[Rfam]
RNA: Burkholderia RNA 7 (anti-hemB)
Organism: Acidovorax sp.
RNA sequence: CCCCCGCUUUUCCUCCCUGAGCGGGGCCUUACGUUGCAGCGAUGCAAAAGAGGCUUCCCGGCCCGGCGGAUUGCCGGGCUCUUUUUUU
Dot-bracket structure: ..((((((...........))))))(((((...................))))).....((((((((.....))))))))........
Numbered sequence: 001c002c003c004c005c006g007c008u009u010u011u012c013c014u015c016c017c018u019g020a021g022c023g024g025g026g027c028c029u030u031a032c033g034u035u036g037c038a039g040c041g042a043u044g045c046a047a048a049a050g051a052g053g054c055u056u057c058c059c060g061g062c063c064c065g066g067c068g069g070a071u072u073g074c075c076g077g078g079c080u081c082u083u084u085u086u087u088u
Stems, first nucleotide, its partner, number of pairs: 003025006026054005060080008